The record is a 172-nucleotide sequence from Clostridium magnum, which matches "glmS glucosamine-6-phosphate activated ribozyme aptamer" in Rfam. Rfam links the family to the GO terms catalytic activity and regulation of gene expression. It scores 96 bits against the family's covariance model. Lineage of the source: Bacteria > Bacillati > Clostridia > Clostridium > Clostridium magnum.
RNA sequence: UUAUAGUUUAAAGCGCUAGAGGUUAAGAAAAUCUCAGGUUUAGAGAUACUUAACUUGACGAGGGUGGGGAGUAUCGAAGUUUUCAGCGGAUGCCCCACGGUAUGAGUACUACCGUUAAAGACUGACAAACCUAAAAAGUGAUUUUUAGAACAAAUUCAGUUGGGUACUCUUG
Numbered sequence: 001u002u003a004u005a006g007u008u009u010a011a012a013g014c015g016c017u018a019g020a021g022g023u024u025a026a027g028a029a030a031a032u033c034u035c036a037g038g039u040u041u042a043g044a045g046a047u048a049c050u051u052a053a054c055u056u057g058a059c060g061a062g063g064g065u066g067g068g069g070a071g072u073a074u075c076g077a078a079g080u081u082u083u084c085a086g087c088g089g090a091u092g093c094c095c096c097a098c099g100g101u102a103u104g105a106g107u108a109c110u111a112c113c114g115u116u117a118a119a120g121a122c123u124g125a126c127a128a129a130c131c132u133a134a135a136a137a138g139u140g141a142u143u144u145u146u147a148g149a150a151c152a153a154a155u156u157c158a159g160u161u162g163g164g165u166a167c168u169c170u171u172g
Base pairs, nucleotide, nucleotide: 020056021055022054023053024052025051026050027049029047065097066096067095068094069093074086076084077083098114099113100112101111102110120161121160122159123158124157131148132147133146134145135144136143137142